[Rfam]
RNA sequence: GUCCUGAUAGCUUAAUUUAAAGCAUCGGUCUUGUAAGCCGAAGAUUGAGGCUAAAACCCUCCUCAAGACU
Numbered sequence: 001g002u003c004c005u006g007a008u009a010g011c012u013u014a015a016u017u018u019a020a021a022g023c024a025u026c027g028g029u030c031u032u033g034u035a036a037g038c039c040g041a042a043g044a045u046u047g048a049g050g051c052u053a054a055a056a057c058c059c060u061c062c063u064c065a066a067g068a069c070u
Base pairs, nucleotide, nucleotide: 001069002068003067005065006064007063010023011022012021013020025041026040027039028038029037047061048060049059050058

Rfam assigns this 70-nucleotide sequence to the family "tRNA". The family's consensus secondary structure is taken from published work. About the family: Transfer RNA (tRNA) molecules are approximately 80 nucleotides in length. A reference for the family is Hou (1993), "The tertiary structure of tRNA and the development of the genetic code", Trends Biochem Sci. The sequence is in the family's curated seed alignment.